[Rfam]
RNA sequence: GUACGCGGUGGAAUGAACGCCGCCGCGUCACCAUUCUCCUCUUGUCGUUGUUGCUCCGGGGCUCCAUUCGCCCCGGUUUUUUUUG
Number, nucleotide and partner (000 for none) at each position: 001g031002u030003a028004c027005g026006c025007g024008g000009u022010g021011g020012a000013a000014u000015g000016a000017a000018c000019g000020c011021c010022g009023c000024c007025g006026c005027g004028u003029c000030a002031c001032c000033a000034u000035u000036c000037u000038c000039c000040u000041c000042u000043u000044g000045u000046c000047g000048u000049u000050g000051u000052u000053g000054c000055u000056c076057c075058g074059g073060g072061g071062c070063u000064c000065c000066a000067u000068u000069c000070g062071c061072c060073c059074c058075g057076g056077u000078u000079u000080u000081u000082u000083u000084u000085g000
This 85-nucleotide sequence from Burkholderia glumae belongs to the Rfam family "Burkholderia sRNA 16 (Bc_KC_sr1)". Gene Ontology term of the family: bacterial biofilm matrix. A search with the family's covariance model found it, with a score of 88 bits. Pairs were carried over by alignment from the consensus structure, which was predicted with RNAfold. By type it is a small RNA.